The family of this 153-nucleotide RNA sequence from Kingdonia uniflora is "U4 spliceosomal RNA". Rfam links the family to the GO terms U4 snRNP and spliceosomal tri-snRNP complex assembly.
RNA sequence: AUCUUUGCGCUUGGGGAAAUGACACAAUCAGUGAGGUUCUAAUUGAGGUGCAUUAAUUGCCGGUUGAGAACUAUUUCCAAACCUCUUGUGCCUUGGGCUUGUCUUGGGCGCUCGAGAAUUUCUGGAAGGGUUCCCUCCUUUGGAGGCUAAACC
Numbered sequence: 001a002u003c004u005u006u007g008c009g010c011u012u013g014g015g016g017a018a019a020u021g022a023c024a025c026a027a028u029c030a031g032u033g034a035g036g037u038u039c040u041a042a043u044u045g046a047g048g049u050g051c052a053u054u055a056a057u058u059g060c061c062g063g064u065u066g067a068g069a070a071c072u073a074u075u076u077c078c079a080a081a082c083c084u085c086u087u088g089u090g091c092c093u094u095g096g097g098c099u100u101g102u103c104u105u106g107g108g109c110g111c112u113c114g115a116g117a118a119u120u121u122c123u124g125g126a127a128g129g130g131u132u133c134c135c136u137c138c139u140u141u142g143g144a145g146g147c148u149a150a151a152c153c
Stems, first nucleotide, its partner, number of pairs: 021054002025050001027049003035044003085116003088111006095104003129153004